[Rfam]
RNA sequence: GACAGCAAAGAUAAAAACACGGCCCGGUUGGUAGUCCGGGCGCAGCGGCCGUAGAAGUGCGGCGGCUGUCAGUAGCCUUCCUCCUUGGUCGUCCGUUCUUUGUUCAUUGAAC
Numbered sequence: 001g002a003c004a005g006c007a008a009a010g011a012u013a014a015a016a017a018c019a020c021g022g023c024c025c026g027g028u029u030g031g032u033a034g035u036c037c038g039g040g041c042g043c044a045g046c047g048g049c050c051g052u053a054g055a056a057g058u059g060c061g062g063c064g065g066c067u068g069u070c071a072g073u074a075g076c077c078u079u080c081c082u083c084c085u086u087g088g089u090c091g092u093c094c095g096u097u098c099u100u101u102g103u104u105c106a107u108u109g110a111a112c
Stems, first nucleotide, its partner, number of pairs: 004104008022041006042069005080088002
The record is a 112-nucleotide sequence from Qiania dongpingensis, which matches "azaaromatic riboswitch aptamer (yjdF RNA)" in Rfam. Taxonomically the source falls in Qiania (Bacteria, Bacillati, Clostridia, Lachnospirales).